The record is a 67-nucleotide sequence from Longimycelium tulufanense, which matches "Transposase-2 RNA" in Rfam.

RNA sequence: GACGCGUCCACCCCGCAGCGCGUCAGCGCAUCAGACGGGGACCAUCCACUGGUAACGGUGGACUGUG
Numbered sequence: 001g002a003c004g005c006g007u008c009c010a011c012c013c014c015g016c017a018g019c020g021c022g023u024c025a026g027c028g029c030a031u032c033a034g035a036c037g038g039g040g041a042c043c044a045u046c047c048a049c050u051g052g053u054a055a056c057g058g059u060g061g062a063c064u065g066u067g
Base pairs, nucleotide, nucleotide: 011040012039013038014037015036018029019028020027021026045062046061047060048059049058050057051056